[Rfam]
RNA sequence: AAAACACUAGCCGAGUUUGCAAAGCAAACGUCGAUUAUUGAUUGCACUUUUUCAGGCUAACGCCUUGCAAAAGUGCGGCAAUUCUGCAAUCCUCAGAAUUUGAAAAUUCUUGCGGUUGCAGAAUUUAUAG
Numbered sequence: 001a002a003a004a005c006a007c008u009a010g011c012c013g014a015g016u017u018u019g020c021a022a023a024g025c026a027a028a029c030g031u032c033g034a035u036u037a038u039u040g041a042u043u044g045c046a047c048u049u050u051u052u053c054a055g056g057c058u059a060a061c062g063c064c065u066u067g068c069a070a071a072a073g074u075g076c077g078g079c080a081a082u083u084c085u086g087c088a089a090u091c092c093u094c095a096g097a098a099u100u101u102g103a104a105a106a107u108u109c110u111u112g113c114g115g116u117u118g119c120a121g122a123a124u125u126u127a128u129a130g
Stems, first nucleotide, its partner, number of pairs: 013032002015029006044076008081124009091115002095110006
The record is a 130-nucleotide RNA sequence from Treponema pedis, which matches "TD-1 RNA" in Rfam. The literature on the family includes a 2007 paper in Nucleic Acids Res by Weinberg et al., "Identification of 22 candidate structured RNAs in bacteria using the CMfinder comparative genomics pipeline". Rfam classes the family as a cis-regulatory element. The base pairs follow the family's consensus structure, which is taken from published work. Clan: TD (Treponema denticola) motifs. The organism belongs to Treponema pedis, within Bacteria.